RNA sequence: UGCACUUGUGUGUGUUUUUGUUUGACUUGUGGACAAAGACUUUGAGACAGGUGCGAAGAAUAAAUCCUCUUUUGCAACCCAGAACUCGUUGUUCAGUAUGAGUUUUGAUACAUAUAAGAAGGAACACA
Numbered sequence: 001u002g003c004a005c006u007u008g009u010g011u012g013u014g015u016u017u018u019u020g021u022u023u024g025a026c027u028u029g030u031g032g033a034c035a036a037a038g039a040c041u042u043u044g045a046g047a048c049a050g051g052u053g054c055g056a057a058g059a060a061u062a063a064a065u066c067c068u069c070u071u072u073u074g075c076a077a078c079c080c081a082g083a084a085c086u087c088g089u090u091g092u093u094c095a096g097u098a099u100g101a102g103u104u105u106u107g108a109u110a111c112a113u114a115u116a117a118g119a120a121g122g123a124a125c126a127c128a
Stems, first nucleotide, its partner, number of pairs: 001055009011045001014040008026031001065124001067122002070119005080107010

Shown here is a 128-nucleotide RNA from Galemys pyrenaicus, a member of the family "Small nucleolar RNA SNORA40". Taxonomically the source falls in Galemys (Eukaryota, Eumetazoa, Tetrapoda, Talpidae). The base pairs follow the family's consensus structure, which was predicted with RNAalifold. About the family: The snoRNA ACA 40 belongs to the H/ACA family of snoRNAs and guides the pseudouridylation of 28S rRNA subunit at position U4565. NB This family has a high threshold value to exclude a large number of closely related sequences that do not appear to have conserved H and ACA boxes, and may be pseudogenes. It is annotated as an H/ACA-box small nucleolar RNA.